[Rfam]
RNA sequence: AUACCCCAUGGACUUGCUCAGGUCCGCCGCAUCUCCUGGGCGCCGUGGGGUCGGCCGGUCCGGCCGCGACACGUGGCCUCCUCGAUUGUCGCGACCGGCCGGCCACAUU
Numbered sequence: 001a002u003a004c005c006c007c008a009u010g011g012a013c014u015u016g017c018u019c020a021g022g023u024c025c026g027c028c029g030c031a032u033c034u035c036c037u038g039g040g041c042g043c044c045g046u047g048g049g050g051u052c053g054g055c056c057g058g059u060c061c062g063g064c065c066g067c068g069a070c071a072c073g074u075g076g077c078c079u080c081c082u083c084g085a086u087u088g089u090c091g092c093g094a095c096c097g098g099c100c101g102g103c104c105a106c107a108u109u
Stems, first nucleotide, its partner, number of pairs: 003051008017040006053104008062096002

The family of this 109-nucleotide sequence from Afifella marina is "EcpR1".
Rfam describes the family as follows. Perviously named SmelC291, SmrC10, or Sra33. According to its overproduction phenotype it was renamed Elongated Cell Phenotype RNA1. Induced by stress,EcpR1 negatively regulates cell cycle master regulatory genes dnaA and gcrA at post-transcriptional level by base pairing between its strongly conserved GC-rich loop and the target mRNAs.
Lineage of the source: Bacteria > Pseudomonadati > Alphaproteobacteria > Afifellaceae > Afifella marina.